The record is a 238-nucleotide part of an RNA from Lachnellula willkommii, which matches "Ascomycota telomerase RNA" in Rfam. The match comes from Rfam's covariance-model search (102 bits). The source organism's lineage runs through Eukaryota, Ascomycota, leotiomyceta, Lachnaceae and Lachnellula. A reference for the family is Qi et al. (2013), "The common ancestral core of vertebrate and fungal telomerase RNAs", Nucleic Acids Res. Gene Ontology terms of the family: telomerase catalytic core complex, telomerase activity and telomere maintenance via telomerase.
RNA sequence: AGGCAUAGUCACUUCGGUGUGGUCUCGAUCAGCCGCAUCAACUUUCUCCCCUGGGCUACGUCUCAGGGUCGAUGGAAGACGCCGACACAUCGUCCUUUCAUCCUCGCGAUGUCUGUACAACUUUCCCUCUUUCAGAGACGACAACGCGGUUUUUGUUGAUGUCUUUUGUCCGCUUUCAUUCAGCCCUGCCUUCUCAUCCCAUGAGACGCGCAGAGGAAACAUAAAACUAAUCUCAGAA
Numbered sequence: 001a002g003g004c005a006u007a008g009u010c011a012c013u014u015c016g017g018u019g020u021g022g023u024c025u026c027g028a029u030c031a032g033c034c035g036c037a038u039c040a041a042c043u044u045u046c047u048c049c050c051c052u053g054g055g056c057u058a059c060g061u062c063u064c065a066g067g068g069u070c071g072a073u074g075g076a077a078g079a080c081g082c083c084g085a086c087a088c089a090u091c092g093u094c095c096u097u098u099c100a101u102c103c104u105c106g107c108g109a110u111g112u113c114u115g116u117a118c119a120a121c122u123u124u125c126c127c128u129c130u131u132u133c134a135g136a137g138a139c140g141a142c143a144a145c146g147c148g149g150u151u152u153u154u155g156u157u158g159a160u161g162u163c164u165u166u167u168g169u170c171c172g173c174u175u176u177c178a179u180u181c182a183g184c185c186c187u188g189c190c191u192u193c194u195c196a197u198c199c200c201a202u203g204a205g206a207c208g209c210g211c212a213g214a215g216g217a218a219a220c221a222u223a224a225a226a227c228u229a230a231u232c233u234c235a236g237a238a
Base pairs, nucleotide, nucleotide: 007043008042009041016039017038018037019036021030022029023028047141048140049137051135052134053133054132055131158232159231160230161227162226164225165224166223167221168220169219184216185215186213187212188211189210195208197206198205